[Rfam]
RNA sequence: GCACUGGUUUAGCUCAGCGGUUACUUCGUUCAACUUUCUCCUGCAGAAACAUGAUCACCAUCCUCUCCGGGGGAUCGAACCGCGGGCGCUGUCCAGUGUUUUC
Numbered sequence: 001g002c003a004c005u006g007g008u009u010u011a012g013c014u015c016a017g018c019g020g021u022u023a024c025u026u027c028g029u030u031c032a033a034c035u036u037u038c039u040c041c042u043g044c045a046g047a048a049a050c051a052u053g054a055u056c057a058c059c060a061u062c063c064u065c066u067c068c069g070g071g072g073g074a075u076c077g078a079a080c081c082g083c084g085g086g087c088g089c090u091g092u093c094c095a096g097u098g099u100u101u102u103c
Stems, first nucleotide, its partner, number of pairs: 002098006012087004017083004025079004

A member of the RNA family "Vault RNA" from Scophthalmus maximus, 103 nucleotides long. A search with the family's covariance model found it, with a score of 69 bits. The base pairs follow the family's consensus structure, which is taken from published work.